Shown here is a 69-nucleotide RNA from Thiomonas intermedia, a member of the family "int-alpA RNA". The family's RNA type in Rfam is small RNA.
[Rfam]
RNA sequence: CGCCAGGCUAUCCCGACGGGGAGAAAAGCGGGAACCUUCACCCGCCUGCCUGGUGCCCCGAAUUGAAGG
Number, nucleotide and partner (000 for none) at each position: 001c055002g054003c053004c052005a051006g050007g049008c048009u000010a000011u022012c021013c020014c019015g000016a000017c000018g000019g014020g013021g012022a011023g000024a000025a000026a000027a000028g045029c044030g043031g042032g041033a000034a000035c069036c068037u067038u066039c065040a064041c032042c031043c030044g029045c028046c000047u000048g008049c007050c006051u005052g004053g003054u002055g001056c000057c000058c000059c000060g000061a000062a000063u000064u040065g039066a038067a037068g036069g035
The sequence is in the family's curated seed alignment. From the family's description: Acidobacteria (1 example), Planctomycetes (1 example), Proteobacteria.